[Rfam]
RNA: Group II catalytic intron D1-D4-1
Organism: Novosphingobium sp. AP12
RNA sequence: GAACAGCGGCAGUGAUGUUGCUGGAUGGGCCCGGAGAAGUCAGCAGCGGUCAUAGUAGCGGGCGCAAGCCGGCGAAGGAC
Numbered sequence: 001g002a003a004c005a006g007c008g009g010c011a012g013u014g015a016u017g018u019u020g021c022u023g024g025a026u027g028g029g030c031c032c033g034g035a036g037a038a039g040u041c042a043g044c045a046g047c048g049g050u051c052a053u054a055g056u057a058g059c060g061g062g063c064g065c066a067a068g069c070c071g072g073c074g075a076a077g078g079a080c
Stems, first nucleotide, its partner, number of pairs: 002026001004023008041046001049080003058073002061070003